[Rfam]
RNA sequence: CCGAUCGCCACAUGCAAAGGGAUCGGCGGUCGAGCCGGCGUCGGUGAGGCCCGCGCUCGGCUCUUUUUGUACCCAUGUUGCUCAAUGGAGGAUGUGGCAAUGAGAA
Number, nucleotide and partner (000 for none) at each position: 001c026002c025003g024004a023005u022006c021007g000008c020009c019010a000011c000012a000013u000014g000015c000016a000017a000018a000019g009020g008021g006022a005023u004024c003025g002026g001027c000028g000029g000030u000031c000032g000033a062034g061035c060036c059037g058038g000039c000040g000041u000042c000043g000044g000045u000046g000047a000048g000049g000050c000051c000052c000053g000054c000055g000056c000057u000058c037059g036060g035061c034062u033063c000064u000065u000066u104067u103068u102069g101070u100071a000072c000073c097074c096075a095076u094077g093078u092079u091080g000081c090082u089083c088084a000085a000086u000087g000088g083089a082090g081091g079092a078093u077094g076095u075096g074097g073098c000099a000100a070101u069102g068103a067104g066105a000106a000
Source information: A member of the RNA family "Repression of heat shock gene expression (ROSE) element" from Allobosea sp. Root483D1, 106 nucleotides long. On this family, see Nocker et al., Nucleic Acids Res 2001: "A mRNA-based thermosensor controls expression of rhizobial heat shock genes". About the family: This family represents a 5' UTR cis-regulatory element found in heat shock mRNAs and is known as the ROSE (repression of heat shock gene expression) element. Pairs were carried over by alignment from the consensus structure, which is taken from published work. The organism belongs to Allobosea, within Bacteria.